[Rfam]
RNA sequence: GGGGACCUACGGGGCCCUUCACCCGCGGCGGGCUCGCCCCGUCGCCACAGAUACGGAAGACAGGAA
Dot-bracket structure: ((((.(((...)))))))........((((((.....)))))).......................
Numbered sequence: 001g002g003g004g005a006c007c008u009a010c011g012g013g014g015c016c017c018u019u020c021a022c023c024c025g026c027g028g029c030g031g032g033c034u035c036g037c038c039c040c041g042u043c044g045c046c047a048c049a050g051a052u053a054c055g056g057a058a059g060a061c062a063g064g065a066a
Stems, first nucleotide, its partner, number of pairs: 001018004006014003027043006

The family of this 66-nucleotide RNA sequence from Palleronia caenipelagi is "L2-Alphaproteobacteria ribosomal protein leader".
Lineage of the source: Bacteria > Pseudomonadota > Alphaproteobacteria > Rhodobacterales > Palleronia.
The match comes from Rfam's covariance-model search (53 bits).
The base pairs follow the family's consensus structure, which is taken from published work.